[Rfam]
RNA sequence: CUCUGAAAUCUGAAAAAUUCGCAAGUAGUAAGGCGUAGUAUACCCUACCAGUAGGACUGGGUUGCUAUUCCUACACUUGUGCUGAAUGGAUUCUAUGUAUAGUGUAGCACAAGAAGACACUAUACACGUUUACUAUCACUGUCUUUGACAUUUAGUGUAUAGUUGAUUGGAGUAAUUACAAAGAAUACACACCGAGGCCACGCCGAGUAGGAACGAGGGUACAGUGUGAAAAGCCGAUGUCAAUGACCGGAAGAGCCAAUCAAUGUAAAAUUAAUAAUCAAAGAACCCCCAGUGAUUUUAAUAGCUUUUUAGUAGAAUUGC
Numbered sequence: 001c002u003c004u005g006a007a008a009u010c011u012g013a014a015a016a017a018u019u020c021g022c023a024a025g026u027a028g029u030a031a032g033g034c035g036u037a038g039u040a041u042a043c044c045c046u047a048c049c050a051g052u053a054g055g056a057c058u059g060g061g062u063u064g065c066u067a068u069u070c071c072u073a074c075a076c077u078u079g080u081g082c083u084g085a086a087u088g089g090a091u092u093c094u095a096u097g098u099a100u101a102g103u104g105u106a107g108c109a110c111a112a113g114a115a116g117a118c119a120c121u122a123u124a125c126a127c128g129u130u131u132a133c134u135a136u137c138a139c140u141g142u143c144u145u146u147g148a149c150a151u152u153u154a155g156u157g158u159a160u161a162g163u164u165g166a167u168u169g170g171a172g173u174a175a176u177u178a179c180a181a182a183g184a185a186u187a188c189a190c191a192c193c194g195a196g197g198c199c200a201c202g203c204c205g206a207g208u209a210g211g212a213a214c215g216a217g218g219g220u221a222c223a224g225u226g227u228g229a230a231a232a233g234c235c236g237a238u239g240u241c242a243a244u245g246a247c248c249g250g251a252a253g254a255g256c257c258a259a260u261c262a263a264u265g266u267a268a269a270a271u272u273a274a275u276a277a278u279c280a281a282a283g284a285a286c287c288c289c290c291a292g293u294g295a296u297u298u299u300a301a302u303a304g305c306u307u308u309u310u311a312g313u314a315g316a317a318u319u320g321c
Stems, first nucleotide, its partner, number of pairs: 022079005032071002035068003039064002046055001089319007096126010131300002135296006142284004150275002163263008190226003305312002

This 321-nucleotide RNA from Betacoronavirus hipposideri belongs to the Rfam family "Betacoronavirus 3'UTR". The source organism's lineage runs through Viruses, Riboviria, Orthornavirae, Pisoniviricetes and Bat Hp-betacoronavirus Zhejiang2013. Gene Ontology term of the family: viral RNA genome replication. The family is grouped with related families in Rfam's "Coronavirus 3' UTR". About the family: The 3' UTR of betacoronaviruses is approximately 300-500 nucleotides long. The most 5' structure is the bulged stem-loop (BSL), starting downstream of the N gene stop codon and is essential for viral replication. It is predicted to be conserved among betacoronaviruses. Downstream to the BSL lies the hypervariable bulged-stemloop region (HVR), containing a triple helix junction. Rfam's curators put it in the seed alignment.